[Rfam]
RNA: mir-306 microRNA precursor family
Organism: Aquarana catesbeiana
RNA sequence: GUACCCCCCAAAGAGAUACUGGGGGACUUUGAAGGCAACUAGUUGCCUUCAAAGUCCCCCAGUAUCUCUUUGGGGGGUAC
Numbered sequence: 001g002u003a004c005c006c007c008c009c010a011a012a013g014a015g016a017u018a019c020u021g022g023g024g025g026a027c028u029u030u031g032a033a034g035g036c037a038a039c040u041a042g043u044u045g046c047c048u049u050c051a052a053a054g055u056c057c058c059c060c061a062g063u064a065u066c067u068c069u070u071u072g073g074g075g076g077g078u079a080c
Base pairs, nucleotide, nucleotide: 001080002079003078004077005076006074008073009072010071011070013068014067015066016065017064018063019062022059023058024057025056026055027054028053029052030051031050032049033048034047035046